[Rfam]
RNA sequence: GUGCUCUGCUAUUUUCAUUGACUUUAGGAUAUCGUGAUAUCGAGAAUUCAAUGAUGUAUAACAAGGAGCCU
Numbered sequence: 001g002u003g004c005u006c007u008g009c010u011a012u013u014u015u016c017a018u019u020g021a022c023u024u025u026a027g028g029a030u031a032u033c034g035u036g037a038u039a040u041c042g043a044g045a046a047u048u049c050a051a052u053g054a055u056g057u058a059u060a061a062c063a064a065g066g067a068g069c070c071u
Stems, first nucleotide, its partner, number of pairs: 001069002004066002007063002010060003015054007023046003028041005
RNA: MIR8041 microRNA precursor family
Organism: Anisodus acutangulus